[Rfam]
RNA: mir-15 microRNA precursor family
RNA sequence: CCUGGUGGUGCUGUAGCAGCACAGAAUGGUUUGUGGGUUACACGGGGAUGCAGGCCGUGCUGUGCUGCGGCAGUUACGCCUGG
Numbered sequence: 001c002c003u004g005g006u007g008g009u010g011c012u013g014u015a016g017c018a019g020c021a022c023a024g025a026a027u028g029g030u031u032u033g034u035g036g037g038u039u040a041c042a043c044g045g046g047g048a049u050g051c052a053g054g055c056c057g058u059g060c061u062g063u064g065c066u067g068c069g070g071c072a073g074u075u076a077c078g079c080c081u082g083g
Base pairs, nucleotide, nucleotide: 001083002082004080005079006078013071014070016068017067018066019065020064021063022062023061024060026058027057028056029055030054031053032052033051034050035049